[Rfam]
RNA sequence: CAUACUACCCAGCCGAAUUUCCGCAAAGAAAACGGGGGGAACCACUUAAGCAUUCCGGGGUGAAUUCCGCGCGCGAAGCGCCGGAUAGGGCAGCCUGUUCUGGCCCGAACCCGUCAGCUAACCUCGUAGGCUGCCAGACAGGACCG
Numbered sequence: 001c002a003u004a005c006u007a008c009c010c011a012g013c014c015g016a017a018u019u020u021c022c023g024c025a026a027a028g029a030a031a032a033c034g035g036g037g038g039g040a041a042c043c044a045c046u047u048a049a050g051c052a053u054u055c056c057g058g059g060g061u062g063a064a065u066u067c068c069g070c071g072c073g074c075g076a077a078g079c080g081c082c083g084g085a086u087a088g089g090g091c092a093g094c095c096u097g098u099u100c101u102g103g104c105c106c107g108a109a110c111c112c113g114u115c116a117g118c119u120a121a122c123c124u125c126g127u128a129g130g131c132u133g134c135c136a137g138a139c140a141g142g143a144c145c146g
Stems, first nucleotide, its partner, number of pairs: 011132004018031003032127006043057001058112003066085004088106004

Background:
A member of the RNA family "c-di-AMP riboswitch aptamer (ydaO/yuaA leader)" from Cohnella rhizosphaerae, 146 nucleotides long.